This 106-nucleotide RNA from Pseudoglutamicibacter albus belongs to the Rfam family "TPP riboswitch aptamer (THI element)". The source organism's lineage runs through Bacteria, Micrococcales, Micrococcaceae, Pseudoglutamicibacter and Pseudoglutamicibacter albus. A search with the family's covariance model found it, with a score of 69 bits.
RNA sequence: CUGAAUCGACAGGGGAGCGCUAACCGAGCGCUGAGAGUGCCGAUGUGGCAGACCCUCGAACCUGAUCCGGUUAGUACCGGUGUAGGGAGUUCGAAUCUUCUCUCGU
Numbered sequence: 001c002u003g004a005a006u007c008g009a010c011a012g013g014g015g016a017g018c019g020c021u022a023a024c025c026g027a028g029c030g031c032u033g034a035g036a037g038u039g040c041c042g043a044u045g046u047g048g049c050a051g052a053c054c055c056u057c058g059a060a061c062c063u064g065a066u067c068c069g070g071u072u073a074g075u076a077c078c079g080g081u082g083u084a085g086g087g088a089g090u091u092c093g094a095a096u097c098u099u100c101u102c103u104c105g106u
Stems, first nucleotide, its partner, number of pairs: 006094004011056004017031005038050005061086004067080004
Record summary:
Gene Ontology term of the family: thiamine pyrophosphate binding. Pairs were carried over by alignment from the consensus structure, which is taken from published work.